Shown here is a 110-nucleotide RNA from Mustela putorius, a member of the family "mir-448 microRNA precursor family". On this family, see Linsen et al., BMC Genomics 2010: "Small RNA expression and strain specificity in the rat".

RNA sequence: GCCGGGAGGUUGAACAUCCUGCAUAGUGCUGCCAGGAUAUCCCUAUUCCAUAGUAAGGGGGCCAGCUGGUUGCAUAUGUAGGAUGUCCCAUCUCCCUGCCCACUUCAUCG
Numbered sequence: 001g002c003c004g005g006g007a008g009g010u011u012g013a014a015c016a017u018c019c020u021g022c023a024u025a026g027u028g029c030u031g032c033c034a035g036g037a038u039a040u041c042c043c044u045a046u047u048c049c050a051u052a053g054u055a056a057g058g059g060g061g062c063c064a065g066c067u068g069g070u071u072g073c074a075u076a077u078g079u080a081g082g083a084u085g086u087c088c089c090a091u092c093u094c095c096c097u098g099c100c101c102a103c104u105u106c107a108u109c110g
Stems, first nucleotide, its partner, number of pairs: 004096007012088001014086012027074003031070005040061005046056002